[Rfam]
RNA sequence: AUGCACACUGAAAGUCGAGACAGCCGACUUCAAAGGCUUUUUCGUUGAUUAUGUGUGCCAUACCAACGCCAUAGGUAUCAUUCUUCGUCUUAUUAGACGCGGAACAUCUAAAUAUGGCUACAAAC
Numbered sequence: 001a002u003g004c005a006c007a008c009u010g011a012a013a014g015u016c017g018a019g020a021c022a023g024c025c026g027a028c029u030u031c032a033a034a035g036g037c038u039u040u041u042u043c044g045u046u047g048a049u050u051a052u053g054u055g056u057g058c059c060a061u062a063c064c065a066a067c068g069c070c071a072u073a074g075g076u077a078u079c080a081u082u083c084u085u086c087g088u089c090u091u092a093u094u095a096g097a098c099g100c101g102g103a104a105c106a107u108c109u110a111a112a113u114a115u116g117g118c119u120a121c122a123a124a125c
Base pairs, nucleotide, nucleotide: 003058004057005056006055007054008053016044017043018042019041020040022038023037024036025035068118069117070116071115072114073113076110077109081104082103083102084101086099087098088097089096090095

A member of the RNA family "Caenorhabditis snoRNA ceN48" from Caenorhabditis remanei, 125 nucleotides long. Rfam's curators put it in the seed alignment. It is annotated as an H/ACA-box small nucleolar RNA.